[Rfam]
RNA sequence: UGCUAUGAUGGUGUAAUUUGCGUCCUACACUGUGCCAAUGACGGGUGCCUACCGUCUAAUAUUGGCACAUCUGGCUGACGAAAAACGAGUCUGAGCA
Numbered sequence: 001u002g003c004u005a006u007g008a009u010g011g012u013g014u015a016a017u018u019u020g021c022g023u024c025c026u027a028c029a030c031u032g033u034g035c036c037a038a039u040g041a042c043g044g045g046u047g048c049c050u051a052c053c054g055u056c057u058a059a060u061a062u063u064g065g066c067a068c069a070u071c072u073g074g075c076u077g078a079c080g081a082a083a084a085a086c087g088a089g090u091c092u093g094a095g096c097a
Stems, first nucleotide, its partner, number of pairs: 001097003021080004031069004038062002040056005

Overview: The family of this 97-nucleotide sequence from Gadus morhua is "Small nucleolar RNA SNORD16". The family's RNA type in Rfam is C/D-box small nucleolar RNA. The base pairs follow the family's consensus structure, which was predicted with PFOLD. A reference for the family is Fragapane et al. (1993), "A novel small nucleolar RNA (U16) is encoded inside a ribosomal protein intron and originates by processing of the pre-mRNA", EMBO J.